Description: Shown here is a 137-nucleotide RNA sequence from Corynebacterium aquilae, a member of the family "atpB RNA".
RNA sequence: CAGUGAUCGCCGCGCUGAUGUGCGACGGAAUCCGUGGCGAUCCAGACUCACUUUCAGACGUCCAUCGCACCGCUUUCACCGCCACGCUUUCGGUGGAAUGCGGCCCGAACACGGGAGAGAACCCUGAGCGUUUCAGU
Numbered sequence: 001c002a003g004u005g006a007u008c009g010c011c012g013c014g015c016u017g018a019u020g021u022g023c024g025a026c027g028g029a030a031u032c033c034g035u036g037g038c039g040a041u042c043c044a045g046a047c048u049c050a051c052u053u054u055c056a057g058a059c060g061u062c063c064a065u066c067g068c069a070c071c072g073c074u075u076u077c078a079c080c081g082c083c084a085c086g087c088u089u090u091c092g093g094u095g096g097a098a099u100g101c102g103g104c105c106c107g108a109a110c111a112c113g114g115g116a117g118a119g120a121a122c123c124c125u126g127a128g129c130g131u132u133u134c135a136g137u
Stems, first nucleotide, its partner, number of pairs: 005042008070103004075098003078094004